[Rfam]
RNA sequence: CAGGGAUGAGCUGAAAACCCUAAAAAGAGUAGGCA
Numbered sequence: 001c002a003g004g005g006a007u008g009a010g011c012u013g014a015a016a017a018c019c020c021u022a023a024a025a026a027g028a029g030u031a032g033g034c035a
Stems, first nucleotide, its partner, number of pairs: 002021004010034003